Rfam assigns this 125-nucleotide sequence from Paucilactobacillus vaccinostercus to the family "FMN riboswitch aptamer (RFN element)". The family's consensus secondary structure is taken from published work.
[Rfam]
RNA sequence: GUUCGUCUUCAGGGCAGGGUGUAAUUCCCGACCGGCGGUGAUAGCCCGCGACCUACGUGUGUGCGUAGUUGAAUCCAGUGAAAUUCUGGGUGCCGACAGUAUAGUCUGGUAUAAAGAAGAUUUCC
Number, nucleotide and partner (000 for none) at each position: 001g000002u000003u000004c000005g121006u120007c119008u118009u117010c116011a000012g000013g000014g000015c000016a000017g029018g028019g027020u000021g000022u000023a000024a000025u000026u000027c019028c018029c017030g000031a105032c104033c095034g094035g049036c048037g047038g046039u000040g000041a000042u000043a000044g093045c092046c038047c037048g036049c035050g000051a000052c000053c068054u067055a000056c000057g000058u000059g000060u000061g000062u000063g000064c000065g000066u000067a054068g053069u000070u000071g000072a000073a091074u000075c089076c088077a087078g086079u000080g000081a000082a000083a000084u000085u000086c078087u077088g076089g075090g000091u073092g045093c044094c034095g033096a000097c108098a107099g106100u000101a000102u000103a000104g032105u031106c099107u098108g097109g000110u000111a000112u000113a000114a000115a000116g010117a009118a008119g007120a006121u005122u000123u000124c000125c000